This 35-nucleotide RNA sequence from Paenibacillus macerans belongs to the Rfam family "L31-Firmicutes ribosomal protein leader". It is annotated as a cis-regulatory leader. The sequence is in the family's curated seed alignment.
[Rfam]
RNA sequence: CUCUGGGCACGAUCUGAGGCUCAGGGCGGAAAGAG
Number, nucleotide and partner (000 for none) at each position: 001c026002u025003c024004u023005g022006g021007g020008c019009a000010c000011g000012a000013u000014c000015u000016g000017a000018g000019g008020c007021u006022c005023a004024g003025g002026g001027c000028g000029g000030a000031a000032a000033g000034a000035g000